[Rfam]
RNA sequence: GGUAGUGGCAAGUAUUCAAAUGAGAACUUUGAAGGCCGAAAAGGUGAAAGGUUCAACGUGAAUGGCACUAGCACAUGGGUUAGUCGAUCCUAUGGGUCGGGGAAACCCCGACAGAUAGCGUAUUCUGCGCAUACUCCGAAAGGGAAUAGGGUUAAAAUUACUGAACCGGAACGUGGCGGUUGACGACAACGUUAGGAAGUCGGCAAACGUUGGUGGGAGCUUUGGGAAAAGUUGUCUUUUCUGUUUAACAGCAUGCCCACCAUGGAAUCGGCUUGCCGGAGGUAGGGUCCAGCGGCUGGAAGAGCACCACACGUCAUGUGGUGUCUAGUGCGCUCGCGGCGACCCUUGAAAAUCCAGAGGACCUAAUGUCAUCCACGCUCGGUCAUUCUCAUAACUGCAUCAGGUCUCCAAGGUGAACAACCUCUGGUUGA
Numbered sequence: 001g002g003u004a005g006u007g008g009c010a011a012g013u014a015u016u017c018a019a020a021u022g023a024g025a026a027c028u029u030u031g032a033a034g035g036c037c038g039a040a041a042a043g044g045u046g047a048a049a050g051g052u053u054c055a056a057c058g059u060g061a062a063u064g065g066c067a068c069u070a071g072c073a074c075a076u077g078g079g080u081u082a083g084u085c086g087a088u089c090c091u092a093u094g095g096g097u098c099g100g101g102g103a104a105a106c107c108c109c110g111a112c113a114g115a116u117a118g119c120g121u122a123u124u125c126u127g128c129g130c131a132u133a134c135u136c137c138g139a140a141a142g143g144g145a146a147u148a149g150g151g152u153u154a155a156a157a158u159u160a161c162u163g164a165a166c167c168g169g170a171a172c173g174u175g176g177c178g179g180u181u182g183a184c185g186a187c188a189a190c191g192u193u194a195g196g197a198a199g200u201c202g203g204c205a206a207a208c209g210u211u212g213g214u215g216g217g218a219g220c221u222u223u224g225g226g227a228a229a230a231g232u233u234g235u236c237u238u239u240u241c242u243g244u245u246u247a248a249c250a251g252c253a254u255g256c257c258c259a260c261c262a263u264g265g266a267a268u269c270g271g272c273u274u275g276c277c278g279g280a281g282g283u284a285g286g287g288u289c290c291a292g293c294g295g296c297u298g299g300a301a302g303a304g305c306a307c308c309a310c311a312c313g314u315c316a317u318g319u320g321g322u323g324u325c326u327a328g329u330g331c332g333c334u335c336g337c338g339g340c341g342a343c344c345c346u347u348g349a350a351a352a353u354c355c356a357g358a359g360g361a362c363c364u365a366a367u368g369u370c371a372u373c374c375a376c377g378c379u380c381g382g383u384c385a386u387u388c389u390c391a392u393a394a395c396u397g398c399a400u401c402a403g404g405u406c407u408c409c410a411a412g413g414u415g416a417a418c419a420a421c422c423u424c425u426g427g428u429u430g431a
Stems, first nucleotide, its partner, number of pairs: 015033006034429004043409002046406001049389002054078001056076001058074002063071001086384002089143002094137002096112003100109003119129003147164001149162002167381003172377005178370001182193004200358002203355001205353001209343004214338002217335004222328003225245002228242001230240001249298004259288003263284002268279004305323007395404002411423004
RNA: Eukaryotic large subunit ribosomal RNA, nucleotides 1443 to 1873